[Rfam]
RNA sequence: UUCUGGUGCCCUUCAUUCCACCGGAAUCUGUCAACAGCAAAACCGGAUUUCAGUGAAAUGAAGCUCAUCAGAGA
Numbered sequence: 001u002u003c004u005g006g007u008g009c010c011c012u013u014c015a016u017u018c019c020a021c022c023g024g025a026a027u028c029u030g031u032c033a034a035c036a037g038c039a040a041a042a043c044c045g046g047a048u049u050u051c052a053g054u055g056a057a058a059u060g061a062a063g064c065u066c067a068u069c070a071g072a073g074a
Stems, first nucleotide, its partner, number of pairs: 011063006019055003023051004028046003
RNA: mir-205 microRNA precursor family